[Rfam]
RNA sequence: ACCGAGCUGGGUAGCGCUGGCUUAUAACUCGAGCGAGGGUACUAAAGAGACGGAACAAUGAUUUGACUCACUAGACAGGGUCAGUAAGUGCAAUUACCUGGCUCGCCCGUUCCAAGUUGAGAGUUGAACCAUGUGACAUGGGCGAAGGCCUGGGUCAUGUGGUUCCUAACGUGGAGGGCACAGCGUGAGGCUGGUUUCACAGAGCAGCGAAGACCUCCCGCUCUCAACAGUGGAAGGAUAACGAGCUGGUGUGCUUCUGAACCUAAAUUGCCUGGUGAGUCGGGCUCGAUUGAACCAUCUCUUUU
Numbered sequence: 001a002c003c004g005a006g007c008u009g010g011g012u013a014g015c016g017c018u019g020g021c022u023u024a025u026a027a028c029u030c031g032a033g034c035g036a037g038g039g040u041a042c043u044a045a046a047g048a049g050a051c052g053g054a055a056c057a058a059u060g061a062u063u064u065g066a067c068u069c070a071c072u073a074g075a076c077a078g079g080g081u082c083a084g085u086a087a088g089u090g091c092a093a094u095u096a097c098c099u100g101g102c103u104c105g106c107c108c109g110u111u112c113c114a115a116g117u118u119g120a121g122a123g124u125u126g127a128a129c130c131a132u133g134u135g136a137c138a139u140g141g142g143c144g145a146a147g148g149c150c151u152g153g154g155u156c157a158u159g160u161g162g163u164u165c166c167u168a169a170c171g172u173g174g175a176g177g178g179c180a181c182a183g184c185g186u187g188a189g190g191c192u193g194g195u196u197u198c199a200c201a202g203a204g205c206a207g208c209g210a211a212g213a214c215c216u217c218c219c220g221c222u223c224u225c226a227a228c229a230g231u232g233g234a235a236g237g238a239u240a241a242c243g244a245g246c247u248g249g250u251g252u253g254c255u256u257c258u259g260a261a262c263c264u265a266a267a268u269u270g271c272c273u274g275g276u277g278a279g280u281c282g283g284g285c286u287c288g289a290u291u292g293a294a295c296c297a298u299c300u301c302u303u304u305u
Base pairs, nucleotide, nucleotide: 001040002039003038004023005022006021007020008019009018010017028037029036030035044304045303046302047301048300049299050298052296053295056292057291059288060287062284063283064282065281066280068278069277070276071275072274073273074272076270077269078263079262081260082259083258084257086255088254089253090252093250098249099248100247101246102245103244104243105242107237108236110235111234112233113232114231116228117227118226119225120224121223122222123221124220126165127164128163129162130161131160132159133158134157135156136155137154139152140151141150142149143148166171173218174217175216176215177214184209185208186207191202192201193200
Plant signal recognition particle RNA: a 305-nucleotide sequence from Castanea mollissima. The base pairs follow the family's consensus structure, which is taken from published work. The match comes from Rfam's covariance-model search (249 bits).